Rfam assigns this 81-nucleotide RNA sequence from Targowskia paracuniculus to the family "Aggregatibacter sRNA 20". The source organism's lineage runs through Bacteria, Pseudomonadati, Gammaproteobacteria, Pasteurellales and Targowskia. The match comes from Rfam's covariance-model search (66 bits). By type it is a small RNA. Rfam describes the family as follows. Validated by RT-PCR and Northern blot.
RNA sequence: AAAACAAGUGUUGUGUUGAAACAACCGAUUUCAUAAAUUUGCUUUCCGAGUAGCCCCUGUUGAAGGGGCUUUUUUCUUUCC
Numbered sequence: 001a002a003a004a005c006a007a008g009u010g011u012u013g014u015g016u017u018g019a020a021a022c023a024a025c026c027g028a029u030u031u032c033a034u035a036a037a038u039u040u041g042c043u044u045u046c047c048g049a050g051u052a053g054c055c056c057c058u059g060u061u062g063a064a065g066g067g068g069c070u071u072u073u074u075u076c077u078u079u080c081c
Base pairs, nucleotide, nucleotide: 002075003074004073006071007070008069023043025041027039028038029037054068055067056066057065058064